SAH (S-adenosyl-L-homocysteine) riboswitch aptamer: an 82-nucleotide sequence from Leptothrix cholodnii.
NCBI's taxonomy places the organism under Bacteria, Pseudomonadati, Pseudomonadota, Burkholderiales, Leptothrix cholodnii.
The match comes from Rfam's covariance-model search (64 bits).
[Rfam]
RNA sequence: UGUUUCGAGGAGCGUUGCAAGGCCGGUGGCUCCCACCCGCCCCAGGCUCGAAACCCUCACAAGGCAACGGCGCUCACCCGCU
Numbered sequence: 001u002g003u004u005u006c007g008a009g010g011a012g013c014g015u016u017g018c019a020a021g022g023c024c025g026g027u028g029g030c031u032c033c034c035a036c037c038c039g040c041c042c043c044a045g046g047c048u049c050g051a052a053a054c055c056c057u058c059a060c061a062a063g064g065c066a067a068c069g070g071c072g073c074u075c076a077c078c079c080g081c082u
Base pairs, nucleotide, nucleotide: 002054003053004052005051006050007049008048021041022040023039025037026036027035028034